[Rfam]
RNA sequence: CAAGCCCGCAAGGCCGACGGCACCCCGCCGCCGCUGGUGCAAGCCCAGCCGCCCGGCAUCCGGGCGGGCGCUCAUGGGCCACAA
Number, nucleotide and partner (000 for none) at each position: 001c000002a000003a000004g079005c078006c077007c076008g000009c000010a000011a000012g000013g069014c068015c067016g000017a000018c030019g029020g028021c000022a000023c000024c000025c000026c000027g000028c020029c019030g018031c000032c000033g049034c048035u047036g046037g000038u000039g000040c000041a000042a000043g000044c000045c000046c036047a035048g034049c033050c066051g065052c064053c063054c062055g061056g000057c000058a000059u000060c000061c055062g054063g053064g052065c051066g050067g015068g014069c013070g000071c000072u000073c000074a000075u000076g007077g006078g005079c004080c000081a000082c000083a000084a000

Rfam assigns this 84-nucleotide RNA from Colidextribacter sp. OB.20 to the family "Twister_sister_ribozyme". The match comes from Rfam's covariance-model search (75 bits). The base pairs follow the family's consensus structure, which is taken from published work. Taxonomically the source falls in Colidextribacter (Bacteria, Bacillota, Clostridia, Eubacteriales). For this family Rfam cites "New classes of self-cleaving ribozymes revealed by comparative genomics analysis" (Weinberg et al., Nat Chem Biol, 2015).